Rfam assigns this 69-nucleotide RNA sequence from Streptomyces sp. ISL-12 to the family "ASpks TB sRNA". The family has 77 seed sequences and 9,052 matches in Rfam 15.1. Taxonomically the source falls in Streptomyces (Bacteria, Bacillati, Actinomycetes, Kitasatosporales). Rfam classes the family as an antisense RNA. On this family, see Arnvig and Young, Mol Microbiol 2009: "Identification of small RNAs in Mycobacterium tuberculosis".
RNA sequence: CUUCAACGAGCCCAGCCACAGGGGCCGUUCACGAUCCUGACCGUACGUCGCCAGCAGGGCCUGCACCUC
Numbered sequence: 001c002u003u004c005a006a007c008g009a010g011c012c013c014a015g016c017c018a019c020a021g022g023g024g025c026c027g028u029u030c031a032c033g034a035u036c037c038u039g040a041c042c043g044u045a046c047g048u049c050g051c052c053a054g055c056a057g058g059g060c061c062u063g064c065a066c067c068u069c
Stems, first nucleotide, its partner, number of pairs: 015025003028065001030063001032059001037054003041050001043048001